[Rfam]
RNA sequence: GCGCCCCUAUCUCCGCCCACUCAACCGCCACGUGGCAGCCGAGUGAGGGCCUCGGGGUAACGC
Numbered sequence: 001g002c003g004c005c006c007c008u009a010u011c012u013c014c015g016c017c018c019a020c021u022c023a024a025c026c027g028c029c030a031c032g033u034g035g036c037a038g039c040c041g042a043g044u045g046a047g048g049g050c051c052u053c054g055g056g057g058u059a060a061c062g063c
Base pairs, nucleotide, nucleotide: 001061005057006056007055008054015050016049017048018047020043021042022041025038028035029034
Background
The family of this 63-nucleotide RNA from Oryza sativa is "MIR2907 microRNA precursor family". The organism belongs to Oryza sativa, within Eukaryota. The base pairs follow the family's consensus structure, which was predicted with RNAalifold. The literature on the family includes a 2010 paper in Genomics by Jian et al., "Identification of novel stress-regulated microRNAs from Oryza sativa L". A search with the family's covariance model found it, with a score of 67 bits.